This 136-nucleotide RNA from Cucumis melo belongs to the Rfam family "Small nucleolar RNA snoR2/U65". The source organism's lineage runs through Eukaryota, Viridiplantae, Tracheophyta, Cucurbitales and Cucumis.
RNA sequence: GGUUUGAUGCCACGUUAUUGAUAGCUCAAGGUUGGUGACCAGCUAUGCUAAUUAUUAAACCAAAAACAAGUUUUUUUCGCCUUGAUAGAUAUCUGUUCAUCUUUUCUGUAUAGAACCGUUUGGUGUGAUUACAUUU
Dot-bracket structure: .((((((((...(((..(.(.(.(.(....).)....).).)..)))....).)))))))................((((.......(....(((..((.......))..)))...).......))))........
Pairs were carried over by alignment from the consensus structure, which was predicted with WAR. Its Rfam clan is "SNORA65 clan". It scores 56 bits against the family's covariance model.